Source information
The family of this 102-nucleotide RNA sequence from Clostridium polyendosporum is "SAM riboswitch aptamer (S box leader)". The source organism's lineage runs through Bacteria, Bacillati, Bacillota, Clostridiaceae and Clostridium.
[Rfam]
RNA sequence: AACUUAUCUAGAGAGGUGGAGGGACUGGCCCGGUGAAACCCAGCAACCUUAUGAGAAAUCGUAAAGGUGCUAAAUCCUGCAGCUAAUGCUGAGAGAUAAGGA
Numbered sequence: 001a002a003c004u005u006a007u008c009u010a011g012a013g014a015g016g017u018g019g020a021g022g023g024a025c026u027g028g029c030c031c032g033g034u035g036a037a038a039c040c041c042a043g044c045a046a047c048c049u050u051a052u053g054a055g056a057a058a059u060c061g062u063a064a065a066g067g068u069g070c071u072a073a074a075u076c077c078u079g080c081a082g083c084u085a086a087u088g089c090u091g092a093g094a095g096a097u098a099a100g101g102a
Base pairs, nucleotide, nucleotide: 003100004099005098006097007096008095013041015040016039017038021031022030023029025079027077028076042071043070044069045068047067048066049063075094080091081090082089083088